RNA sequence: GGCGUAAAGCGUCCGCAGCCGGAUGGGUAAGCGGUUUGUCAAAGCCCACCGCUCAACGGUGGAAAGGCAUACCGAACUGCCCAUCUUGAGGCACGCUCAGGUAGGCGGAAUUCCCGGUGUAGCGGUGAAAUGCGUAGAUAUCGGGAGGAACACCGGUGGCGAAGGCGGCCUACUGGGGCUGUCCUGACGGUCAGGGACGAAAGCUGGGGGAGCAAACCGGAUUAGAUACCCGGGUAGUCCCAGCCGUAAACCAUGGGCGCUAGGCGUUGUCCGCAAGGGCAGUGCCUCAGCUAACGCGGUAAGCGCCCCGCCUGGGGAGUACGGGCGCAAGCCUGAAACUCAAAGGAAU
Numbered sequence: 001g002g003c004g005u006a007a008a009g010c011g012u013c014c015g016c017a018g019c020c021g022g023a024u025g026g027g028u029a030a031g032c033g034g035u036u037u038g039u040c041a042a043a044g045c046c047c048a049c050c051g052c053u054c055a056a057c058g059g060u061g062g063a064a065a066g067g068c069a070u071a072c073c074g075a076a077c078u079g080c081c082c083a084u085c086u087u088g089a090g091g092c093a094c095g096c097u098c099a100g101g102u103a104g105g106c107g108g109a110a111u112u113c114c115c116g117g118u119g120u121a122g123c124g125g126u127g128a129a130a131u132g133c134g135u136a137g138a139u140a141u142c143g144g145g146a147g148g149a150a151c152a153c154c155g156g157u158g159g160c161g162a163a164g165g166c167g168g169c170c171u172a173c174u175g176g177g178g179c180u181g182u183c184c185u186g187a188c189g190g191u192c193a194g195g196g197a198c199g200a201a202a203g204c205u206g207g208g209g210g211a212g213c214a215a216a217c218c219g220g221a222u223u224a225g226a227u228a229c230c231c232g233g234g235u236a237g238u239c240c241c242a243g244c245c246g247u248a249a250a251c252c253a254u255g256g257g258c259g260c261u262a263g264g265c266g267u268u269g270u271c272c273g274c275a276a277g278g279g280c281a282g283u284g285c286c287u288c289a290g291c292u293a294a295c296g297c298g299g300u301a302a303g304c305g306c307c308c309c310g311c312c313u314g315g316g317g318a319g320u321a322c323g324g325g326c327g328c329a330a331g332c333c334u335g336a337a338a339c340u341c342a343a344a345g346g347a348a349u
Base pairs, nucleotide, nucleotide: 001312002311003310009309011198012197013196014195018191019190020189022085023084024083025082026081027080028079030078031077032074033073034072035071037069038068039067040066046062047061048060049059050058051057089185090184091183092181093180096177097176100174101173102172103171104170105169106168107151111147112146113145114144115143116142117141118140122133123132124131159166160165203244204243205242206241207240208239212238213237217233218232219231220230255308256307257306258305259304260303263286264285265284266283267282268281269280270279271278272277290297291296314341315340316339323334324333325332326331
The family of this 349-nucleotide part of an RNA from Hydrogenobacter thermophilus is "Bacterial small subunit ribosomal RNA". The sequence is in the family's curated seed alignment. A reference for the family is Yusupov et al. (2001), "Crystal structure of the ribosome at 5.5 A resolution", Science. Taxonomically the source falls in Hydrogenobacter thermophilus (Bacteria, Pseudomonadati, Aquificia, Aquificaceae).